[Rfam]
RNA sequence: GAAUUGCCCGAUAGUAUAAUGGUAGUACGACAGAUUUUGGUUCUGUUUGUCUUGGUUCGAAUCCAGGUCGGGCAACAAAAAAUCCGCUGAAAAGCGGAUUUUUUUAUU
Numbered sequence: 001g002a003a004u005u006g007c008c009c010g011a012u013a014g015u016a017u018a019a020u021g022g023u024a025g026u027a028c029g030a031c032a033g034a035u036u037u038u039g040g041u042u043c044u045g046u047u048u049g050u051c052u053u054g055g056u057u058c059g060a061a062u063c064c065a066g067g068u069c070g071g072g073c074a075a076c077a078a079a080a081a082a083u084c085c086g087c088u089g090a091a092a093a094g095c096g097g098a099u100u101u102u103u104u105u106a107u108u
Stems, first nucleotide, its partner, number of pairs: 004075008029047005051067005081100008
Dot-bracket structure: ...((((((((.................(((((.........)))))...(((((.......))))))))))))).....((((((((....))))))))........
RNA: Streptococcus sRNA SpF41
Organism: Chitinophaga barathri